Background:
This 79-nucleotide sequence from Parnassius apollo belongs to the Rfam family "Mammalian CPEB3 ribozyme". From the family's description: The mammalian CPEB3 ribozyme is a self cleaving RNA located in the second intron of the CPEB3 gene which belongs to a family of genes regulating messenger RNA polyadenylation. This ribozyme is highly conserved and found only in mammals. The CPEB3 ribozyme is structurally and biochemically related to the human hepatitis delta virus (HDV) ribozyme and the HDV ribozyme is proposed to have arisen from the human transcriptome. The base pairs follow the family's consensus structure, which is taken from published work. It scores 42 bits against the family's covariance model.
RNA sequence: AAAAUUAUAUAUGGGGUGGCAUUGUAGAAGCGUGCUCGUCGCAACCUCUGCCAGCCCUUUUCAGGGCUGCAAUUCUACA
Numbered sequence: 001a002a003a004a005u006u007a008u009a010u011a012u013g014g015g016g017u018g019g020c021a022u023u024g025u026a027g028a029a030g031c032g033u034g035c036u037c038g039u040c041g042c043a044a045c046c047u048c049u050g051c052c053a054g055c056c057c058u059u060u061u062c063a064g065g066g067c068u069g070c071a072a073u074u075c076u077a078c079a
Stems, first nucleotide, its partner, number of pairs: 013048005023079007030042003052069007